Shown here is an 84-nucleotide sequence from Vigna angularis, a member of the family "Small nucleolar RNA Z159/U59". The organism belongs to Vigna angularis, within Eukaryota. A reference for the family is Chen et al. (2003), "The high diversity of snoRNAs in plants: identification and comparative study of 120 snoRNA genes from Oryza sativa", Nucleic Acids Res. By type it is a C/D-box small nucleolar RNA. Its Rfam clan is "SNORD59 clan". The base pairs follow the family's consensus structure, which was predicted with PFOLD.
RNA sequence: GCCUCUGAGGAUGAUGAAAAAUAUUACUUUCGUUCUUCUGAGUUUUCUAUGCGGAAAAUAUAUGGAGACCUGAACUGAAGAGAC
Numbered sequence: 001g002c003c004u005c006u007g008a009g010g011a012u013g014a015u016g017a018a019a020a021a022u023a024u025u026a027c028u029u030u031c032g033u034u035c036u037u038c039u040g041a042g043u044u045u046u047c048u049a050u051g052c053g054g055a056a057a058a059u060a061u062a063u064g065g066a067g068a069c070c071u072g073a074a075c076u077g078a079a080g081a082g083a084c
Base pairs, nucleotide, nucleotide: 003082004081005080006079